[Rfam]
RNA sequence: ACACGAGAGAGGAGGUGGUCCGUACUUUGCAUGCUUAUCGGACUCGUGAGGUGGCUGUCCGCUAGCCGCCGUCCAGAUGGGCCGCCCGUUCGGAGACUUUUUCGAACGACGGCAUGAUCGCCCGUCCGUCGUACGGCGGCGAGCGAGAACCGGACAGUCACCCGACCCCCGGGCUGCCGACAUUUGUCCAGUCGGCCCGCGAGCCGCUCCCCUGCACCGCAGGGUCCAGCGCCGCGGAGCAGCCCGGGGGUUGUCCGUU
Numbered sequence: 001a002c003a004c005g006a007g008a009g010a011g012g013a014g015g016u017g018g019u020c021c022g023u024a025c026u027u028u029g030c031a032u033g034c035u036u037a038u039c040g041g042a043c044u045c046g047u048g049a050g051g052u053g054g055c056u057g058u059c060c061g062c063u064a065g066c067c068g069c070c071g072u073c074c075a076g077a078u079g080g081g082c083c084g085c086c087c088g089u090u091c092g093g094a095g096a097c098u099u100u101u102u103c104g105a106a107c108g109a110c111g112g113c114a115u116g117a118u119c120g121c122c123c124g125u126c127c128g129u130c131g132u133a134c135g136g137c138g139g140c141g142a143g144c145g146a147g148a149a150c151c152g153g154a155c156a157g158u159c160a161c162c163c164g165a166c167c168c169c170c171g172g173g174c175u176g177c178c179g180a181c182a183u184u185u186g187u188c189c190a191g192u193c194g195g196c197c198c199g200c201g202a203g204c205c206g207c208u209c210c211c212c213u214g215c216a217c218c219g220c221a222g223g224g225u226c227c228a229g230c231g232c233c234g235c236g237g238a239g240c241a242g243c244c245c246g247g248g249g250g251u252u253g254u255c256c257g258u259u
Stems, first nucleotide, its partner, number of pairs: 014059006060145004065140002068137004163253013176196006